[Rfam]
RNA sequence: GUGAUUAUGGUAAUAUACAAAAGUGAGCAAGUUGGAUAGAUGGUGGCUAUCUGAGUAUAAGGAGGUGGUGCCUAUGGUGGCAUUACUGAAAUCUUUAGAAAGGAGACGCCUUUGUGGUAUCUGUUGUUGAUGCACUAAAUUUAAUGUUUAGUUUCGGUAUGUUUAUCGUUGCUUUACUUGGUUUAGU
Numbered sequence: 001g002u003g004a005u006u007a008u009g010g011u012a013a014u015a016u017a018c019a020a021a022a023g024u025g026a027g028c029a030a031g032u033u034g035g036a037u038a039g040a041u042g043g044u045g046g047c048u049a050u051c052u053g054a055g056u057a058u059a060a061g062g063a064g065g066u067g068g069u070g071c072c073u074a075u076g077g078u079g080g081c082a083u084u085a086c087u088g089a090a091a092u093c094u095u096u097a098g099a100a101a102g103g104a105g106a107c108g109c110c111u112u113u114g115u116g117g118u119a120u121c122u123g124u125u126g127u128u129g130a131u132g133c134a135c136u137a138a139a140u141u142u143a144a145u146g147u148u149u150a151g152u153u154u155c156g157g158u159a160u161g162u163u164u165a166u167c168g169u170u171g172c173u174u175u176a177c178u179u180g181g182u183u184u185a186g187u
Stems, first nucleotide, its partner, number of pairs: 043160003047156001061096006071088001113139001115137001117135002120132001165182004
This 187-nucleotide RNA sequence belongs to the Rfam family "Listeria sRNA rli28". The match comes from Rfam's covariance-model search (89 bits). It is annotated as a small RNA.